[Rfam]
RNA: Small nucleolar RNA SNORD35
RNA sequence: GGCGCGUGAUGCUGCUCUCACGAUGGUCUUCGGAGCCCCCCCUUGGGGGCCGUGACGCCGACGUUGGCGCUGACGCCGAGCG
Numbered sequence: 001g002g003c004g005c006g007u008g009a010u011g012c013u014g015c016u017c018u019c020a021c022g023a024u025g026g027u028c029u030u031c032g033g034a035g036c037c038c039c040c041c042c043u044u045g046g047g048g049g050c051c052g053u054g055a056c057g058c059c060g061a062c063g064u065u066g067g068c069g070c071u072g073a074c075g076c077c078g079a080g081c082g
Base pairs, nucleotide, nucleotide: 001077002076003075004074